A member of the RNA family "Small nucleolar RNA SNORD30" from Fukomys damarensis, 70 nucleotides long. Rfam links the family to the GO terms nucleolus and RNA processing. The pairing is the family consensus, mapped onto this sequence. Clan: SNORD30 clan.
RNA sequence: GUGCAUGAUGACUUACAUGGAAUCUCGUUCGGCUGAUGACUUGCUGUUGAGAUGUGGAAAUCUGAUUUCU
Dot-bracket structure: ......................(((((..((((.........)))).)))))..................